[Rfam]
RNA sequence: GCACUGGCAGAACGUUUUACCGUUGUGGUUCUUUGCUGCUUCUGGAAAGAAAGCGACAUGACAGAAGUAGACAGUGU
Numbered sequence: 001g002c003a004c005u006g007g008c009a010g011a012a013c014g015u016u017u018u019a020c021c022g023u024u025g026u027g028g029u030u031c032u033u034u035g036c037u038g039c040u041u042c043u044g045g046a047a048a049g050a051a052a053g054c055g056a057c058a059u060g061a062c063a064g065a066a067g068u069a070g071a072c073a074g075u076g077u
Stems, first nucleotide, its partner, number of pairs: 001077006009032004037069008
Dot-bracket structure: ((((((..((((................))))....((((((((.................))))))))..))))))